[Rfam]
RNA sequence: UGGGAUAUGGUGUAAUGGUAACACUACAGAUUCUGGUCCUGUCAUUCUUGGUUCGAGUCCGAGUAUCCCAA
Numbered sequence: 001u002g003g004g005a006u007a008u009g010g011u012g013u014a015a016u017g018g019u020a021a022c023a024c025u026a027c028a029g030a031u032u033c034u035g036g037u038c039c040u041g042u043c044a045u046u047c048u049u050g051g052u053u054c055g056a057g058u059c060c061g062a063g064u065a066u067c068c069c070a071a
Stems, first nucleotide, its partner, number of pairs: 001070007010024004026042004047063005

Description:
Shown here is a 71-nucleotide sequence from Prevotella sp. CAG:1320, a member of the family "tRNA". Rfam classes the family as a transfer RNA. A search with the family's covariance model found it, with a score of 54 bits. From the family's description: Transfer RNA (tRNA) molecules are approximately 80 nucleotides in length. The family has 954 seed sequences and 5,335,975 matches in Rfam 15.1. The organism belongs to Prevotella, within Bacteria.